[Rfam]
RNA sequence: CACGACCGGCUGGACACUCACGUGCCCGGCCCACAAGUGGAGGCUCCGAACUCCCACCUAGUCGAUCCCCGAUCGGCAGGUCUCCGGUCAGGCAGCGGCCAUCGUUCCGUACGGACGAUGGAGCUGCCCGAUAGCCCCGCGGCUCACACCGUGGCGGUUCCGGUUUUCAUGGAGCCCCCGCCUGUGUCCCGUCCGGGGCAUUUUUU
Numbered sequence: 001c002a003c004g005a006c007c008g009g010c011u012g013g014a015c016a017c018u019c020a021c022g023u024g025c026c027c028g029g030c031c032c033a034c035a036a037g038u039g040g041a042g043g044c045u046c047c048g049a050a051c052u053c054c055c056a057c058c059u060a061g062u063c064g065a066u067c068c069c070c071g072a073u074c075g076g077c078a079g080g081u082c083u084c085c086g087g088u089c090a091g092g093c094a095g096c097g098g099c100c101a102u103c104g105u106u107c108c109g110u111a112c113g114g115a116c117g118a119u120g121g122a123g124c125u126g127c128c129c130g131a132u133a134g135c136c137c138c139g140c141g142g143c144u145c146a147c148a149c150c151g152u153g154g155c156g157g158u159u160c161c162g163g164u165u166u167u168c169a170u171g172g173a174g175c176c177c178c179c180g181c182c183u184g185u186g187u188c189c190c191g192u193c194c195g196g197g198g199c200a201u202u203u204u205u206u
Base pairs, nucleotide, nucleotide: 004089005088006087007086008085009084012027013026028082029081030080031079035059037057038056039055040054041052042051061077062076063075064074065073066072067071091128092127093126094125095124099121100120101119102118103117104116105115106114134199135198136197137196138195139194140191141190142189147186148185149184151181152180153179154178157175158174159173160172161171
A member of the RNA family "Streptomyces RNA 1601" from Streptomyces sp. ISL-11, 206 nucleotides long. It is annotated as a small RNA. Identified by deep sequencing of transcriptome at the end of exponential growth phase. NCBI's taxonomy places the organism under Bacteria, Bacillati, Actinomycetes, Kitasatosporales, Streptomyces.